[Rfam]
The record is a 220-nucleotide RNA sequence from Desulfobotulus alkaliphilus, which matches "Group II catalytic intron D1-D4-6" in Rfam. Rfam's curators write: Group II introns are found in rRNA, tRNA and mRNA of organelles in fungi, plants and protists, and also in mRNA in bacteria. On this family, see Bonen and Vogel, Trends Genet 2001: "The ins and outs of group II introns". The pairing is the family consensus, mapped onto this sequence.
RNA sequence: CAAGUCCUCUAUCCGGUAAGGUGUAGCGAACCGCCGGAGCCCCGAGUCAUGGGCUGCUGCUCGUGAGGGUAGUGGUUAAGCGUUGACAGGGGAACACACAGGCUCGGUAUUGAGCUCCGAAAUCAGGGUUGGGAAUGCUGACCGUGUUGGGUGAACGGGAAGGCAAAACUGAAUGCUGCGUCAACGCAAGUGGCAGGCAGGCCUGCCACAUCCAGAAGCU
Number, nucleotide and partner (000 for none) at each position: 001c000002a000003a000004g000005u000006c000007c000008u000009c000010u000011a000012u038013c037014c036015g035016g034017u000018a000019a000020g032021g031022u030023g000024u189025a000026g187027c186028g000029a000030a022031c021032c020033g000034c016035c015036g014037g013038a012039g000040c092041c091042c090043c089044g000045a000046g087047u086048c085049a084050u082051g081052g077053g076054c075055u074056g073057c072058u071059g070060c069061u068062c067063g000064u000065g000066a000067g062068g061069g060070u059071a058072g057073u056074g055075g054076u053077u052078a000079a000080g000081c051082g050083u000084u049085g048086a047087c046088a000089g043090g042091g041092g040093a000094a000095c000096a000097c000098a000099c000100a000101g000102g000103c000104u000105c000106g000107g000108u000109a000110u000111u214112g212113a000114g211115c000116u210117c000118c000119g207120a000121a000122a000123u000124c000125a000126g000127g000128g000129u000130u000131g206132g000133g204134a000135a000136u201137g164138c163139u162140g000141a000142c158143c157144g156145u155146g000147u000148u000149g000150g000151g000152u000153g000154a000155a145156c144157g143158g142159g000160a000161a000162g139163g138164c137165a000166a000167a000168a000169c200170u199171g198172a000173a000174u195175g194176c193177u192178g191179c190180g000181u000182c000183a000184a000185c000186g027187c026188a000189a024190g179191u178192g177193g176194c175195a174196g000197g000198c171199a170200g169201g136202c000203c000204u133205g000206c131207c119208a000209c000210a116211u114212c112213c000214a111215g000216a000217a000218g000219c000220u000